A member of the RNA family "MIR6146 microRNA precursor family" from Nicotiana attenuata, 75 nucleotides long. Rfam 15.1 lists 13 matches to the family in 3 species. Rfam links the family to the GO terms RISC complex and miRNA-mediated post-transcriptional gene silencing. Pairs were carried over by alignment from the consensus structure, which was predicted with RNAalifold.

[Rfam]
RNA sequence: CAACAGACUUUGUCCAAUGAAAUACUUAUUGGACAUCAAGAGUCCAGCUAAGUGUUCAUUGGAUGAAGUUCGUUG
Numbered sequence: 001c002a003a004c005a006g007a008c009u010u011u012g013u014c015c016a017a018u019g020a021a022a023u024a025c026u027u028a029u030u031g032g033a034c035a036u037c038a039a040g041a042g043u044c045c046a047g048c049u050a051a052g053u054g055u056u057c058a059u060u061g062g063a064u065g066a067a068g069u070u071c072g073u074u075g
Stems, first nucleotide, its partner, number of pairs: 002074003006070001008068014023054006030047001032044003